Small nucleolar RNA SNORA4: a 135-nucleotide sequence from Equus caballus. By type it is an H/ACA-box small nucleolar RNA. Gene Ontology terms of the family: nucleolus and RNA processing. It scores 69 bits against the family's covariance model. The family is grouped with related families in Rfam's "SNORA4 clan". Lineage of the source: Eukaryota > Bilateria > Boreoeutheria > Perissodactyla > Equus. Rfam describes the family as follows. ACA4 is a member of the H/ACA class of snoRNA that guide the sites of modification of uridines to pseudouridines.
[Rfam]
RNA sequence: CUACUGAAAAUUGGUUUUGAGGGGAAGAUUUUUAGUCAUCUUUGUCAACUCAAGUUCUGUGGGGGAGUGAAGACCACACUCCAUAGUGAGCUUUACUCUUUAUGUGCAGUUCAUUACUAUUUUGUGGCCUAGAAA
Numbered sequence: 001c002u003a004c005u006g007a008a009a010a011u012u013g014g015u016u017u018u019g020a021g022g023g024g025a026a027g028a029u030u031u032u033u034a035g036u037c038a039u040c041u042u043u044g045u046c047a048a049c050u051c052a053a054g055u056u057c058u059g060u061g062g063g064g065g066a067g068u069g070a071a072g073a074c075c076a077c078a079c080u081c082c083a084u085a086g087u088g089a090g091c092u093u094u095a096c097u098c099u100u101u102a103u104g105u106g107c108a109g110u111u112c113a114u115u116a117c118u119a120u121u122u123u124g125u126g127g128c129c130u131a132g133a134a135a
Stems, first nucleotide, its partner, number of pairs: 004062003008058001013056005021050002023046002026043001027040003071130002074127005085115008094106003